[Rfam]
RNA sequence: GGUCAUGAGUGCCAGCGCGAAACCCCGGUUUGCUGGCCGGCAACCCUCCUCUCGCGGCGGGGUGCCCCGGGUGACGACCAGGCCGCACGCCGACCGGCGGGCGGCAAGCGCGGGGA
Numbered sequence: 001g002g003u004c005a006u007g008a009g010u011g012c013c014a015g016c017g018c019g020a021a022a023c024c025c026c027g028g029u030u031u032g033c034u035g036g037c038c039g040g041c042a043a044c045c046c047u048c049c050u051c052u053c054g055c056g057g058c059g060g061g062g063u064g065c066c067c068c069g070g071g072u073g074a075c076g077a078c079c080a081g082g083c084c085g086c087a088c089g090c091c092g093a094c095c096g097g098c099g100g101g102c103g104g105c106a107a108g109c110g111c112g113g114g115g116a
Stems, first nucleotide, its partner, number of pairs: 001079004009038001011037006021030002039066003044062003048057002082105005088099004